[Rfam]
RNA sequence: CCCUGUAUCGAAAGUGACUAUGGUGUGGUGGUUGCCAGGUCAUUGAUACGACAGGAAGAGAAAACUGAAAGUCUUUCCCGUGUUUGUUGGGAGUACCAUCCCUGUCAGACCCUGUAUCUUUCAGAUA
Numbered sequence: 001c002c003c004u005g006u007a008u009c010g011a012a013a014g015u016g017a018c019u020a021u022g023g024u025g026u027g028g029u030g031g032u033u034g035c036c037a038g039g040u041c042a043u044u045g046a047u048a049c050g051a052c053a054g055g056a057a058g059a060g061a062a063a064a065c066u067g068a069a070a071g072u073c074u075u076u077c078c079c080g081u082g083u084u085u086g087u088u089g090g091g092a093g094u095a096c097c098a099u100c101c102c103u104g105u106c107a108g109a110c111c112c113u114g115u116a117u118c119u120u121u122c123a124g125a126u127a
Base pairs, nucleotide, nucleotide: 002055003054004053005052006051008048013044014043015042016041017040018039019038022036023035024034025033066123067122068121069120070119071118082110083109084108085107086106087104089102090101091100
Rfam assigns this 127-nucleotide sequence from Megalops atlanticus to the family "Small nucleolar RNA SNORA71". NCBI's taxonomy places the organism under Eukaryota, Opisthokonta, Metazoa, Gnathostomata, Megalops. A reference for the family is Ganot et al. (1997), "The family of box ACA small nucleolar RNAs is defined by an evolutionarily conserved secondary structure and ubiquitous sequence elements essential for RNA accumulation", Genes Dev. It is annotated as an H/ACA-box small nucleolar RNA. The match comes from Rfam's covariance-model search (86 bits). Gene Ontology terms of the family: RNA processing and nucleolus.